[Rfam]
RNA sequence: UAACCUAAGCCGAAAGGCUUAACUGAACAUGCAGAAUUCGGCAGAUGCCAUAGUACCUGAGUAAAGGACGCUUGAAAAGGGAAGGGC
Numbered sequence: 001u002a003a004c005c006u007a008a009g010c011c012g013a014a015a016g017g018c019u020u021a022a023c024u025g026a027a028c029a030u031g032c033a034g035a036a037u038u039c040g041g042c043a044g045a046u047g048c049c050a051u052a053g054u055a056c057c058u059g060a061g062u063a064a065a066g067g068a069c070g071c072u073u074g075a076a077a078a079g080g081g082a083a084g085g086g087c
Stems, first nucleotide, its partner, number of pairs: 001025002006021006038045002047087003056080003
The record is an 87-nucleotide RNA sequence from Baia soyae, which matches "Group II catalytic intron D1-D4-1" in Rfam.
NCBI's taxonomy places the organism under Bacteria, Bacillota, Bacilli, Thermoactinomycetaceae, Baia.
A reference for the family is Chu et al. (2001), "Control of branch-site choice by a group II intron", EMBO J.
A search with the family's covariance model found it, with a score of 58 bits.
From the family's description: Group II introns are found in rRNA, tRNA and mRNA of organelles in fungi, plants and protists, and also in mRNA in bacteria.
The pairing is the family consensus, mapped onto this sequence.